[Rfam]
RNA sequence: CGCGAGAGACAGGGGCGCUUGCGGGCUUCCGCGGGCUGAGACGCACCCUUCGAACCUGAACCGGGUAAUGCCGGCGGAGGGAGUCGCUCGGGCGCACUG
Numbered sequence: 001c002g003c004g005a006g007a008g009a010c011a012g013g014g015g016c017g018c019u020u021g022c023g024g025g026c027u028u029c030c031g032c033g034g035g036c037u038g039a040g041a042c043g044c045a046c047c048c049u050u051c052g053a054a055c056c057u058g059a060a061c062c063g064g065g066u067a068a069u070g071c072c073g074g075c076g077g078a079g080g081g082a083g084u085c086g087c088u089c090g091g092g093c094g095c096a097c098u099g
Stems, first nucleotide, its partner, number of pairs: 006087001008085003011049004016043001017036007055080003061074004
Dot-bracket structure: .....(.(((((((.((((((((......)))))))......)..)))).....(((...((((......))))...)))..))).)............
A member of the RNA family "TPP riboswitch aptamer (THI element)" from Rubrimonas cliftonensis, 99 nucleotides long. Rfam describes the family as follows. Vitamin B(1) in its active form thiamin pyrophosphate (TPP) is an essential coenzyme that is synthesised by coupling of pyrimidine and thiazole moieties in bacteria. NCBI's taxonomy places the organism under Bacteria, Pseudomonadati, Pseudomonadota, Paracoccaceae, Rubrimonas. It scores 60 bits against the family's covariance model.